This 407-nucleotide RNA from Sulfurospirillum deleyianum belongs to the Rfam family "Bacterial RNase P class A".
The base pairs follow the family's consensus structure, which is taken from published work.
The match comes from Rfam's covariance-model search (250 bits).
The family's RNA type in Rfam is ribozyme.

RNA sequence: AAGGUGUAGCAGGUGAUUGCUUGGGCACUCACGCUCAAGAGGAAAGUCCGGGCUGCAUGUGAGACAUGGUUCCGCCUAACGGACGGCUAGGGUAACCUAAGGGACAGUGCAACAGAAAGUAAACUACCAUUCUGUCGCCCUUGCGAAAGCAUAGCUUUCGUGAGAUAAAUGGAAGAUGAGCUUUGCUUGUCUCUAAAAAGACAGUUUAAUGGAAAAGGUGAAACGGCGGGGUAAGAGCCCACCAGCGCUUUGAGUAAUCAUCGCGGCUAUGUAAACCCAACCUGCAGCAAGAAGGGAUGGUUUUGGUCUCACACACGAUAAACCCUUCGCUAGAGGCUUACUGUAAAGUAAGCAGUAGAUAAAUAAUCACCCAACGACAGAACCCGGCUUAUCGCUACACCUUUUGA
Numbered sequence: 001a002a003g004g005u006g007u008a009g010c011a012g013g014u015g016a017u018u019g020c021u022u023g024g025g026c027a028c029u030c031a032c033g034c035u036c037a038a039g040a041g042g043a044a045a046g047u048c049c050g051g052g053c054u055g056c057a058u059g060u061g062a063g064a065c066a067u068g069g070u071u072c073c074g075c076c077u078a079a080c081g082g083a084c085g086g087c088u089a090g091g092g093u094a095a096c097c098u099a100a101g102g103g104a105c106a107g108u109g110c111a112a113c114a115g116a117a118a119g120u121a122a123a124c125u126a127c128c129a130u131u132c133u134g135u136c137g138c139c140c141u142u143g144c145g146a147a148a149g150c151a152u153a154g155c156u157u158u159c160g161u162g163a164g165a166u167a168a169a170u171g172g173a174a175g176a177u178g179a180g181c182u183u184u185g186c187u188u189g190u191c192u193c194u195a196a197a198a199a200g201a202c203a204g205u206u207u208a209a210u211g212g213a214a215a216a217g218g219u220g221a222a223a224c225g226g227c228g229g230g231g232u233a234a235g236a237g238c239c240c241a242c243c244a245g246c247g248c249u250u251u252g253a254g255u256a257a258u259c260a261u262c263g264c265g266g267c268u269a270u271g272u273a274a275a276c277c278c279a280a281c282c283u284g285c286a287g288c289a290a291g292a293a294g295g296g297a298u299g300g301u302u303u304u305g306g307u308c309u310c311a312c313a314c315a316c317g318a319u320a321a322a323c324c325c326u327u328c329g330c331u332a333g334a335g336g337c338u339u340a341c342u343g344u345a346a347a348g349u350a351a352g353c354a355g356u357a358g359a360u361a362a363a364u365a366a367u368c369a370c371c372c373a374a375c376g377a378c379a380g381a382a383c384c385c386g387g388c389u390u391a392u393c394g395c396u397a398c399a400c401c402u403u404u405u406g407a
Stems, first nucleotide, its partner, number of pairs: 001403010011392001012371007020039007044390003048387005053287004068282004072086003076082001087101001088099004102278002107276002109272003124217002127212005134205001225243002228240003245267001246265003251260003291328004299324005336353007